[Rfam]
RNA sequence: GCAGGUACGGAGACAUGGUUCCUAAGACGAUUGCUGGGAAGAUCUUUGGCUCAAUCUGCUCUCUAAGUGGGGUGCUGGUAAUUGCCCUGCCUGUCCCUGUCAUUGUGUCCAAC
Numbered sequence: 001g002c003a004g005g006u007a008c009g010g011a012g013a014c015a016u017g018g019u020u021c022c023u024a025a026g027a028c029g030a031u032u033g034c035u036g037g038g039a040a041g042a043u044c045u046u047u048g049g050c051u052c053a054a055u056c057u058g059c060u061c062u063c064u065a066a067g068u069g070g071g072g073u074g075c076u077g078g079u080a081a082u083u084g085c086c087c088u089g090c091c092u093g094u095c096c097c098u099g100u101c102a103u104u105g106u107g108u109c110c111a112a113c
Base pairs, nucleotide, nucleotide: 001113004110005109006107007106008105009104010103012101013100014099015098017096018095020093036076037075039073048062049061
RNA: Potassium channel RNA editing signal
Organism: Myripristis murdjan